[Rfam]
Streptomyces sRNA 4677: a 226-nucleotide RNA sequence from Streptomyces griseoaurantiacus. Rfam describes the family as follows. Located in the intergenic region between anti-sigma factor SCO4677 gene and a putative regulatory protein gene SCO4676. scr4677 expression requires the SCO4677 activity and scr4677 sRNA itself seem to affect the levels of the SCO4676-associated transcripts. On this family, see Hindra et al., PLoS One 2014: "Complex intra-operonic dynamics mediated by a small RNA in Streptomyces coelicolor".
RNA sequence: GCCGCGGGCGGUGACCACUCAAGGAACUCGGAGGAGAAAGGACCGCACCAAGCCCACCCCCCUCCCACCGUCGGUCAGCGGCGGGGAGCCGCUCACUCACGCGGGUGAACAUCACCGGCUCGGCUGGAUUUCGGGGCCCCCAACUGUCCUACUCUCAGCGCAAAAGCCCCCGACAUAUGUCGGCCCACGGCCGCGACCUGGGAUCCCGAACGAGGGCCUGACCGGC
Numbered sequence: 001g002c003c004g005c006g007g008g009c010g011g012u013g014a015c016c017a018c019u020c021a022a023g024g025a026a027c028u029c030g031g032a033g034g035a036g037a038a039a040g041g042a043c044c045g046c047a048c049c050a051a052g053c054c055c056a057c058c059c060c061c062c063u064c065c066c067a068c069c070g071u072c073g074g075u076c077a078g079c080g081g082c083g084g085g086g087a088g089c090c091g092c093u094c095a096c097u098c099a100c101g102c103g104g105g106u107g108a109a110c111a112u113c114a115c116c117g118g119c120u121c122g123g124c125u126g127g128a129u130u131u132c133g134g135g136g137c138c139c140c141c142a143a144c145u146g147u148c149c150u151a152c153u154c155u156c157a158g159c160g161c162a163a164a165a166g167c168c169c170c171c172g173a174c175a176u177a178u179g180u181c182g183g184c185c186c187a188c189g190g191c192c193g194c195g196a197c198c199u200g201g202g203a204u205c206c207c208g209a210a211c212g213a214g215g216g217c218c219u220g221a222c223c224g225g226c
Stems, first nucleotide, its partner, number of pairs: 001226004010069004093108006123159005182218005188212002193207001195205002